[Rfam]
RNA sequence: GGAUGUGAGGGCGAUCUGGCUGCGACAUCUGUCACCCCACUGAUCGCCAGGGUUGAUUUGGCUGAUCUGGCUGGCUAGGCGGCUGAUCUGGCUGGCUAGGCGGGUGCCCCCUUCCUCCCUCUACGCUCUAUGUGCGUCCCUCACGAAGCUGCGCGCUCGGUCGAAGAGGACAACCUCCCCGAUAGAGAUGGUACCGUUCAUCAUUGAAGGGUGUAGGGUAGCUGCCCUCCCCUGCUAGAACCUCCAAACAAGCUCAAGGACCAUUUGUAGGAGAACCUAGGGAAGUCAAGCUUCCAAGACCGCAGACACAUCCCAGUUGUUUUG
Numbered sequence: 001g002g003a004u005g006u007g008a009g010g011g012c013g014a015u016c017u018g019g020c021u022g023c024g025a026c027a028u029c030u031g032u033c034a035c036c037c038c039a040c041u042g043a044u045c046g047c048c049a050g051g052g053u054u055g056a057u058u059u060g061g062c063u064g065a066u067c068u069g070g071c072u073g074g075c076u077a078g079g080c081g082g083c084u085g086a087u088c089u090g091g092c093u094g095g096c097u098a099g100g101c102g103g104g105u106g107c108c109c110c111c112u113u114c115c116u117c118c119c120u121c122u123a124c125g126c127u128c129u130a131u132g133u134g135c136g137u138c139c140c141u142c143a144c145g146a147a148g149c150u151g152c153g154c155g156c157u158c159g160g161u162c163g164a165a166g167a168g169g170a171c172a173a174c175c176u177c178c179c180c181g182a183u184a185g186a187g188a189u190g191g192u193a194c195c196g197u198u199c200a201u202c203a204u205u206g207a208a209g210g211g212u213g214u215a216g217g218g219u220a221g222c223u224g225c226c227c228u229c230c231c232c233u234g235c236u237a238g239a240a241c242c243u244c245c246a247a248a249c250a251a252g253c254u255c256a257a258g259g260a261c262c263a264u265u266u267g268u269a270g271g272a273g274a275a276c277c278u279a280g281g282g283a284a285g286u287c288a289a290g291c292u293u294c295c296a297a298g299a300c301c302g303c304a305g306a307c308a309c310a311u312c313c314c315a316g317u318u319g320u321u322u323u324g
Stems, first nucleotide, its partner, number of pairs: 001129003007121005013114002018111002024108001026106008035095002037091003042088004046083003137191002140187003144159003148156002161182003168178003221291003227285002230282005242273004248268005